Source information
The family of this 86-nucleotide RNA sequence from Cephalotus follicularis is "Small nucleolar RNA Z221/R21b". The family's consensus secondary structure was predicted with WAR. The family has 12 seed sequences and 588 matches in Rfam 15.1. On this family, see Chen et al., Nucleic Acids Res 2003: "The high diversity of snoRNAs in plants: identification and comparative study of 120 snoRNA genes from Oryza sativa".
RNA sequence: GGGCAGUGAUGAAAAAAUUUGAUUAAGUCAUGCUCCACUCUGAUUUUUCCGUGCUGAUAAUUUUCUUACCCAUUUUUCCCAAGCCC
Numbered sequence: 001g002g003g004c005a006g007u008g009a010u011g012a013a014a015a016a017a018u019u020u021g022a023u024u025a026a027g028u029c030a031u032g033c034u035c036c037a038c039u040c041u042g043a044u045u046u047u048u049c050c051g052u053g054c055u056g057a058u059a060a061u062u063u064u065c066u067u068a069c070c071c072a073u074u075u076u077u078c079c080c081a082a083g084c085c086c
Base pairs, nucleotide, nucleotide: 001086002085003084004083